[Rfam]
RNA sequence: GGCUAAGAGGUGUUAUAGGAACGCCCAGGGCUUUGACACCUUAGCCUGGGCGUUCCUAUAACACCUCUUAGCC
Numbered sequence: 001g002g003c004u005a006a007g008a009g010g011u012g013u014u015a016u017a018g019g020a021a022c023g024c025c026c027a028g029g030g031c032u033u034u035g036a037c038a039c040c041u042u043a044g045c046c047u048g049g050g051c052g053u054u055c056c057u058a059u060a061a062c063a064c065c066u067c068u069u070a071g072c073c
Base pairs, nucleotide, nucleotide: 001073002072003071004070005069006068007067008066009065010064011063015059016058017057018056019055020054021053022052023051024050025049026048027047028046029045031044032043035040

The family of this 73-nucleotide RNA from Hymenochirus boettgeri is "Epstein-Barr virus stable intronic sequence RNA 2". On this family, see Moss et al., RNA Biol 2014: "RNA families in Epstein-Barr virus". The pairing is the family consensus, mapped onto this sequence. The source organism's lineage runs through Eukaryota, Opisthokonta, Pipoidea, Pipidae and Hymenochirus.